[Rfam]
RNA sequence: ACGGGGACUAGCCUGGGUGGCUCGGCGUCACCUGUUACCCGAAACCGCCGUCAGCGGGGGGCGAAGUCUGAGGAAGGCCGCAGCGGCCUGCAGGAUCCUCUGCGUCCCGACGGAGAAGCCUCGUCCCAUGAGGUCGGCGGAAAGGGAUCAAUGCCCCGGAGGGGGCGGCGACCUUUUGCCGCGGGUACCGGUUCAGGCCCGGAAGGGAGCAGACUUACCGUGGACGUUCGGCGCCCAUGGGGUUGCGGGGUGGAGGAGGGAUGCAGCGGUGAAUGCUUGUGCGCACGGUCGACCAAGGACGUGUCCCCAA
Numbered sequence: 001a002c003g004g005g006g007a008c009u010a011g012c013c014u015g016g017g018u019g020g021c022u023c024g025g026c027g028u029c030a031c032c033u034g035u036u037a038c039c040c041g042a043a044a045c046c047g048c049c050g051u052c053a054g055c056g057g058g059g060g061g062c063g064a065a066g067u068c069u070g071a072g073g074a075a076g077g078c079c080g081c082a083g084c085g086g087c088c089u090g091c092a093g094g095a096u097c098c099u100c101u102g103c104g105u106c107c108c109g110a111c112g113g114a115g116a117a118g119c120c121u122c123g124u125c126c127c128a129u130g131a132g133g134u135c136g137g138c139g140g141a142a143a144g145g146g147a148u149c150a151a152u153g154c155c156c157c158g159g160a161g162g163g164g165g166c167g168g169c170g171a172c173c174u175u176u177u178g179c180c181g182c183g184g185g186u187a188c189c190g191g192u193u194c195a196g197g198c199c200c201g202g203a204a205g206g207g208a209g210c211a212g213a214c215u216u217a218c219c220g221u222g223g224a225c226g227u228u229c230g231g232c233g234c235c236c237a238u239g240g241g242g243u244u245g246c247g248g249g250g251u252g253g254a255g256g257a258g259g260g261a262u263g264c265a266g267c268g269g270u271g272a273a274u275g276c277u278u279g280u281g282c283g284c285a286c287g288g289u290c291g292a293c294c295a296a297g298g299a300c301g302u303g304u305c306c307c308c309a310a
Stems, first nucleotide, its partner, number of pairs: 003308006011062004015033007038058004066300004072294002076290005083282001086280002090276002095274002098268001100266009111255001118251007125241006132234001133232004137227003140176002143174001145173002148171002152167006179223006190215004198207003
RNA: Archaeal signal recognition particle RNA
Organism: Methanoculleus marisnigri